[Rfam]
This 101-nucleotide RNA sequence from Paenibacillus sp. J2TS4 belongs to the Rfam family "Glycine riboswitch aptamer". It scores 58 bits against the family's covariance model. About the family: This family represents the bacterial glycine riboswitch.
RNA sequence: UGAGGAUACAAGGGAGAGAUUGCCGCUGACGGAGUCAGACGGUAACGCCGAAGGAGUAAGCCGCAAGGUGAAUCUCUCAGGCAAAAGGACCUGUAUCGGAC
Numbered sequence: 001u002g003a004g005g006a007u008a009c010a011a012g013g014g015a016g017a018g019a020u021u022g023c024c025g026c027u028g029a030c031g032g033a034g035u036c037a038g039a040c041g042g043u044a045a046c047g048c049c050g051a052a053g054g055a056g057u058a059a060g061c062c063g064c065a066a067g068g069u070g071a072a073u074c075u076c077u078c079a080g081g082c083a084a085a086a087g088g089a090c091c092u093g094u095a096u097c098g099g100a101c
Base pairs, nucleotide, nucleotide: 005097006096007095008094009093011092012091013090020045021044022043023042024041025040047082048081049080050078051077054076055075056074060069061068
Dot-bracket structure: ....(((((.(((......((((((..............)))))).(((((..(((...((......))....))))).))).......))))))))....